[Rfam]
RNA sequence: AUAAUAUUUAUUUGUAAGUCGCUUUGGAUAAAAGCGUCUGCUAAGUGAAUAAAU
Number, nucleotide and partner (000 for none) at each position: 001a000002u000003a000004a000005u000006a000007u000008u000009u000010a000011u000012u000013u043014g041015u040016a039017a000018g000019u000020c036021g035022c034023u033024u032025u031026g000027g000028a000029u000030a000031a025032a024033a023034g022035c021036g020037u000038c000039u016040g015041c014042u000043a013044a000045g000046u000047g000048a000049a000050u000051a000052a000053a000054u000

A member of the RNA family "UnaL2 LINE 3' element" from Ameiurus melas, 54 nucleotides long.
The base pairs follow the family's consensus structure, which is taken from published work.
By type it is a cis-regulatory element.
The eel long interspersed element (LINE) UnaL2 and its partner short interspersed element (SINE) share a conserved 3' tail containing a stem-loop that is critical for their retrotransposition. Presumably, the first step of retrotransposition is the recognition of their 3' tails by UnaL2-encoded reverse transcriptase. The solution structure of a 17-nucleotide RNA derived from the 3' tail of UnaL2 was determined by NMR.